Rfam assigns this 64-nucleotide RNA sequence from Pelecanus crispus to the family "Small Cajal body specific RNA ncR26".
The base pairs follow the family's consensus structure, which was predicted with RNAfold.
The source organism's lineage runs through Eukaryota, Chordata, Saurischia, Pelecaniformes and Pelecanus.
The family's RNA type in Rfam is small Cajal body RNA.
[Rfam]
RNA sequence: UUUGAAAACCAGGUUUUUAUGGACUGCAAAGCAAAAUUUUGUGAAUGCUAAGAUGUAUGCCUUU
Dot-bracket structure: ...........((....((((....(((..((((....))))...))).....))))..))...